[Rfam]
RNA sequence: AGAUCUGAGGGCAAUCUGGCUGUGAGAUCUGAUAUGCCAUUGAUUGCAUGGGUUGAUUUGACUGAUCUAGCUAGCUUAGGCAGGUGUUCCCUUUCUUCCUCAACAUUGCAUGUGUGUUCUUCCUGAUGCUGUUUUCUUGGUUAAUGAGGACAUCCUCCCCAACACACAUGGUAUUUUUCACUGGUCAAGGGUGUGUGGUAGCUGUGCUCCCCUGCUGAAGGCUCUAAGUAAGCUCAAGGUCCAUUUGGAGAUGAAUGUAGGGUAGUUAAGCAUCCAAUACUGAAGACACAUCCAAAUGAGAAGCUGCAUGCAGCAGUCUGCCAGUAUCU
Numbered sequence: 001a002g003a004u005c006u007g008a009g010g011g012c013a014a015u016c017u018g019g020c021u022g023u024g025a026g027a028u029c030u031g032a033u034a035u036g037c038c039a040u041u042g043a044u045u046g047c048a049u050g051g052g053u054u055g056a057u058u059u060g061a062c063u064g065a066u067c068u069a070g071c072u073a074g075c076u077u078a079g080g081c082a083g084g085u086g087u088u089c090c091c092u093u094u095c096u097u098c099c100u101c102a103a104c105a106u107u108g109c110a111u112g113u114g115u116g117u118u119c120u121u122c123c124u125g126a127u128g129c130u131g132u133u134u135u136c137u138u139g140g141u142u143a144a145u146g147a148g149g150a151c152a153u154c155c156u157c158c159c160c161a162a163c164a165c166a167c168a169u170g171g172u173a174u175u176u177u178u179c180a181c182u183g184g185u186c187a188a189g190g191g192u193g194u195g196u197g198g199u200a201g202c203u204g205u206g207c208u209c210c211c212c213u214g215c216u217g218a219a220g221g222c223u224c225u226a227a228g229u230a231a232g233c234u235c236a237a238g239g240u241c242c243a244u245u246u247g248g249a250g251a252u253g254a255a256u257g258u259a260g261g262g263u264a265g266u267u268a269a270g271c272a273u274c275c276a277a278u279a280c281u282g283a284a285g286a287c288a289c290a291u292c293c294a295a296a297u298g299a300g301a302a303g304c305u306g307c308a309u310g311c312a313g314c315a316g317u318c319u320g321c322c323a324g325u326a327u328c329u
Stems, first nucleotide, its partner, number of pairs: 003107001006102006013094002018091002024088002027085005033079001035074001037070001039068001042067004046062001117171002121166001123140004128136001141162002148158003201271003207265002210262006222253001225250001229247004294329001296327001300322001303317005
Dot-bracket structure: ..(..((((((.((...((....((.(((((.(.(.(.(..(((((...............).))))).)...)....).))))).)).)).))..))))))....).........((..(.((((.(.......)))))((.....(((.....)))..))...)...)).............................(((...((.((((((......(..(...((((...........))))..)..)...)))))).))...)))......................(.(...(..(((((.....)))))....)....).)